S10-Clostridia ribosomal protein leader: a 100-nucleotide RNA from Thermoactinomyces mirandus.
For this family Rfam cites "Discovery of 20 novel ribosomal leader candidates in bacteria and archaea" (Eckert and Weinberg, BMC Microbiol, 2020).
By type it is a cis-regulatory leader.

[Rfam]
RNA sequence: UGAACGCGAUGAAACGGAAGGUUGCCGACACACCCGGCCCCUUUGCCAUGGCCGGGCGGGAAAUUUUCGUGGAGAAGUUCAUUUGAAAAAUGGGCGAGAA
Number, nucleotide and partner (000 for none) at each position: 001u000002g000003a000004a000005c000006g000007c000008g000009a000010u000011g000012a000013a000014a070015c069016g068017g000018a067019a066020g065021g064022u000023u000024g000025c059026c058027g057028a000029c055030a000031c000032a000033c000034c000035c000036g000037g000038c000039c000040c000041c000042u000043u000044u000045g000046c000047c000048a000049u000050g000051g000052c000053c000054g000055g029056g000057c027058g026059g025060g000061a000062a000063a000064u021065u020066u019067u018068c016069g015070u014071g000072g000073a000074g000075a000076a000077g000078u098079u097080c096081a000082u094083u093084u092085g000086a000087a000088a000089a000090a000091u000092g084093g083094g082095c000096g080097a079098g078099a000100a000
About this RNA
The source organism's lineage runs through Bacteria, Bacillati, Bacilli, Caryophanales and Thermoactinomyces. The family's consensus secondary structure is taken from published work.